This 104-nucleotide RNA sequence from Oryza sativa belongs to the Rfam family "Small nucleolar RNA Z194".

RNA sequence: AGCAGAUUGAUGAUGAAACAAUUUCUCCAAGCGUUUGUUACGCUGAUCCAUAUGAUGGAGGGCUAUGGUAACAUAGCCUUCAUAGUUUUCAAUCUGAACCAUCU
Numbered sequence: 001a002g003c004a005g006a007u008u009g010a011u012g013a014u015g016a017a018a019c020a021a022u023u024u025c026u027c028c029a030a031g032c033g034u035u036u037g038u039u040a041c042g043c044u045g046a047u048c049c050a051u052a053u054g055a056u057g058g059a060g061g062g063c064u065a066u067g068g069u070a071a072c073a074u075a076g077c078c079u080u081c082a083u084a085g086u087u088u089u090c091a092a093u094c095u096g097a098a099c100c101a102u103c104u
Base pairs, nucleotide, nucleotide: 004104005103006102007101030044031043032042033041034040058081059080060079061078062077063076064075065074066073067072
NCBI's taxonomy places the organism under Eukaryota, Viridiplantae, Oryzeae, Oryza, Oryza sativa.
Rfam 15.1 lists 65 matches to the family in 24 species.
Pairs were carried over by alignment from the consensus structure, which was predicted with PFOLD.
Rfam links the family to the GO terms RNA processing and nucleolus.